RNA sequence: CUCCCCUACUCUGGAGAGCGGUAGCAGUGCAAAGUAGAAUCGCACUGAACUACCCACCGAAGGUGCGACGAGAAUCGUUGAAACAUGAAUCUCGUAAUCUCUCAGGUACCAGGACAGAGGGGUAACG
Number, nucleotide and partner (000 for none) at each position: 001c000002u000003c000004c000005c000006c122007u121008a000009c119010u118011c117012u116013g115014g000015a000016g000017a000018g000019c000020g054021g053022u052023a051024g000025c000026a000027g000028u000029g000030c000031a000032a000033a000034g000035u000036a000037g000038a000039a000040u000041c000042g000043c000044a000045c000046u000047g000048a000049a000050c000051u023052a022053c021054c020055c000056a107057c106058c105059g103060a102061a000062g000063g101064u000065g099066c000067g000068a000069c094070g093071a092072g091073a090074a000075u000076c000077g000078u000079u000080g000081a000082a000083a000084c000085a000086u000087g000088a000089a000090u073091c072092u071093c070094g069095u000096a000097a000098u000099c065100u000101c063102u060103c059104a000105g058106g057107u056108a000109c000110c000111a000112g000113g000114a000115c013116a012117g011118a010119g009120g000121g007122g006123u000124a000125a000126c000127g000
RNA: Glycine riboswitch aptamer
Organism: Affinundibacterium nitidum